About this RNA:
The family of this 73-nucleotide RNA sequence from Methylomagnum ishizawai is "int-alpA RNA". Acidobacteria (1 example), Planctomycetes (1 example), Proteobacteria. The family's RNA type in Rfam is small RNA. The base pairs follow the family's consensus structure, which is taken from published work.
RNA sequence: ACCGCGCCUAGCCCUGGCCGGGCGAACCACGGGCACCCUUUCACCCGUCCGGCGCGACUUCCCUCCUGAAAGG
Numbered sequence: 001a002c003c004g005c006g007c008c009u010a011g012c013c014c015u016g017g018c019c020g021g022g023c024g025a026a027c028c029a030c031g032g033g034c035a036c037c038c039u040u041u042c043a044c045c046c047g048u049c050c051g052g053c054g055c056g057a058c059u060u061c062c063c064u065c066c067u068g069a070a071a072g073g
Base pairs, nucleotide, nucleotide: 003056004055005054006053007052008051011023012022013021014020029048030047031046032045033044037073038072039071040070041069042068